RNA sequence: AUAACGAAACAUAAGUCACAGUUCCGCCUAAGUUCAGCCCUUGGAAGACCCCAAAACUCGCUAUGAUUAUGCAUGUUGCCUCUCGGCCCGGUCCAACUAGAGAGGCUUCGGAAUCUCAGCCCCCCAGCCCCCCCCGGGGUCUUCUCUCGGACCGGGCCACUCUCCAUGAGGCCACGAAAAAGGGCCGGCGAAAGCCGGCCCUUUU
Numbered sequence: 001a002u003a004a005c006g007a008a009a010c011a012u013a014a015g016u017c018a019c020a021g022u023u024c025c026g027c028c029u030a031a032g033u034u035c036a037g038c039c040c041u042u043g044g045a046a047g048a049c050c051c052c053a054a055a056a057c058u059c060g061c062u063a064u065g066a067u068u069a070u071g072c073a074u075g076u077u078g079c080c081u082c083u084c085g086g087c088c089c090g091g092u093c094c095a096a097c098u099a100g101a102g103a104g105g106c107u108u109c110g111g112a113a114u115c116u117c118a119g120c121c122c123c124c125c126a127g128c129c130c131c132c133c134c135c136g137g138g139g140u141c142u143u144c145u146c147u148c149g150g151a152c153c154g155g156g157c158c159a160c161u162c163u164c165c166a167u168g169a170g171g172c173c174a175c176g177a178a179a180a181a182g183g184g185c186c187g188g189c190g191a192a193a194g195c196c197g198g199c200c201c202u203u204u205u
Stems, first nucleotide, its partner, number of pairs: 034043001078172005085158010103142009119130001120127001182201008
RNA: Bradyrhizobiaceae sRNA BjrC174
Organism: Methyloceanibacter superfactus